Shown here is a 71-nucleotide sequence from Pseudomonas fluorescens, a member of the family "narK RNA".
RNA sequence: GGCACAAAUCUCGCUAUGUAAAACGCACAGGUAACCAACGGCGGUUGCCCCACCUACGACAAAGACGUCGC
Numbered sequence: 001g002g003c004a005c006a007a008a009u010c011u012c013g014c015u016a017u018g019u020a021a022a023a024c025g026c027a028c029a030g031g032u033a034a035c036c037a038a039c040g041g042c043g044g045u046u047g048c049c050c051c052a053c054c055u056a057c058g059a060c061a062a063a064g065a066c067g068u069c070g071c
Base pairs, nucleotide, nucleotide: 030049031048032047033046034045035044036043
By type it is a cis-regulatory element. NCBI's taxonomy places the organism under Bacteria, Pseudomonadati, Gammaproteobacteria, Pseudomonas, Pseudomonas fluorescens.